Shown here is a 121-nucleotide sequence from Tianweitania populi, a member of the family "Alphaproteobacterial ar14". About the family: Smr14C2 was renamed NfeR1 (Nodule Formation Efficiency RNA) highly expressed in salt stress and during the symbiotic interaction on legume roots. Rfam links the family to the GO term biological process involved in symbiotic interaction. By type it is a small RNA. The source organism's lineage runs through Bacteria, Pseudomonadati, Alphaproteobacteria, Phyllobacteriaceae and Tianweitania.
RNA sequence: GAGAUUUCGCUGAGCCUACCUCCUCCCAGGCUUCAGCGAAUACGACCGGAACCUACCUCCUCCCAGGAACCGGUCACCCAAACGACACCUGCCCAACCUCCUCCCUGGGCAGGUGUCGCAU
Numbered sequence: 001g002a003g004a005u006u007u008c009g010c011u012g013a014g015c016c017u018a019c020c021u022c023c024u025c026c027c028a029g030g031c032u033u034c035a036g037c038g039a040a041u042a043c044g045a046c047c048g049g050a051a052c053c054u055a056c057c058u059c060c061u062c063c064c065a066g067g068a069a070c071c072g073g074u075c076a077c078c079c080a081a082a083c084g085a086c087a088c089c090u091g092c093c094c095a096a097c098c099u100c101c102u103c104c105c106u107g108g109g110c111a112g113g114u115g116u117c118g119c120a121u
Stems, first nucleotide, its partner, number of pairs: 007039003011035003014031003044075006052067002085116011